[Rfam]
RNA sequence: AGAGUGUUGACGGGGGCUGUCUCUAGUACGAGAGGACCGAGAUGGACGUACCAAUGGUGUUCCUGUUGUUCCGCCAGGGGCAUCGCAGGGUAGCUAAGUACGGAAUAGAUAACUGCUGAAAGCAUCUAAGCGGGAAGCUAGCCCGAAGACUAACACUCUAUUGAGAGUUGUGACAGAUUAUCACGUAAAUAGGCCAGAUGUGUAAGCGCGGUAACGCGCUUCAGCUUACUGGUACUAAAGACUCGAAAG
Numbered sequence: 001a002g003a004g005u006g007u008u009g010a011c012g013g014g015g016g017c018u019g020u021c022u023c024u025a026g027u028a029c030g031a032g033a034g035g036a037c038c039g040a041g042a043u044g045g046a047c048g049u050a051c052c053a054a055u056g057g058u059g060u061u062c063c064u065g066u067u068g069u070u071c072c073g074c075c076a077g078g079g080g081c082a083u084c085g086c087a088g089g090g091u092a093g094c095u096a097a098g099u100a101c102g103g104a105a106u107a108g109a110u111a112a113c114u115g116c117u118g119a120a121a122g123c124a125u126c127u128a129a130g131c132g133g134g135a136a137g138c139u140a141g142c143c144c145g146a147a148g149a150c151u152a153a154c155a156c157u158c159u160a161u162u163g164a165g166a167g168u169u170g171u172g173a174c175a176g177a178u179u180a181u182c183a184c185g186u187a188a189a190u191a192g193g194c195c196a197g198a199u200g201u202g203u204a205a206g207c208g209c210g211g212u213a214a215c216g217c218g219c220u221u222c223a224g225c226u227u228a229c230u231g232g233u234a235c236u237a238a239a240g241a242c243u244c245g246a247a248a249g
Base pairs, nucleotide, nucleotide: 001159002158003157004156005155006154007153008152011145012144013143014142017045018044019043020042021041022040023039047102048101049100050099051098055096056095057094062089063088064087065086066085067082068081069080070079071078072077106140107139108138113133114132115131116130117129162246165244166243167242168241169185170184171183172182173181190237191236192235193233194232195231196230197229198227200225206219207218208217209216210215
The family of this 249-nucleotide part of an RNA from Candidatus Hodgkinia cicadicola is "Bacterial large subunit ribosomal RNA". Rfam links the family to the GO terms ribosome and structural constituent of ribosome. The sequence is in the family's curated seed alignment.